Notes
The family of this 181-nucleotide sequence from Streptomyces sp. NL15-2K is "c-di-AMP riboswitch aptamer (ydaO/yuaA leader)".
RNA sequence: CGAGACUCAUCGACGAAGACACUCGCACGGCAGGAGCGGGGGAACCAGGUAAGUCGCCGGGCCGGACGACGCACGUCGCACCGGAACGGCUAGGGGUGAAGUCGCAUCGCCACAAGGCGGCGCGGCCGGGCAACUCCCGCCCGAACCCGACAGCUCACCUCGUAGGCGCCGGAGAGGAACA
Number, nucleotide and partner (000 for none) at each position: 001c165002g000003a000004g000005a000006c034007u033008c000009a000010u000011c000012g000013a000014c000015g000016a000017a000018g000019a000020c000021a000022c000023u000024c000025g000026c000027a000028c000029g000030g000031c000032a000033g007034g006035a000036g163037c162038g161039g160040g159041g158042g000043a000044a000045c000046c093047a000048g000049g000050u000051a000052a000053g000054u000055c000056g000057c000058c000059g000060g000061g000062c000063c000064g000065g000066a000067c000068g000069a000070c000071g000072c000073a000074c000075g000076u000077c000078g000079c000080a000081c000082c000083g000084g000085a000086a000087c000088g000089g000090c000091u000092a000093g046094g148095g147096g146097u000098g000099a000100a000101g000102u125103c124104g123105c122106a000107u000108c000109g000110c000111c000112a000113c000114a000115a000116g000117g000118c000119g000120g000121c000122g105123c104124g103125g102126c000127c000128g142129g141130g140131c139132a000133a000134c000135u000136c000137c000138c000139g131140c130141c129142c128143g000144a000145a000146c096147c095148c094149g000150a000151c000152a000153g000154c000155u000156c000157a000158c041159c040160u039161c038162g037163u036164a000165g001166g000167c000168g000169c000170c000171g000172g000173a000174g000175a000176g000177g000178a000179a000180c000181a000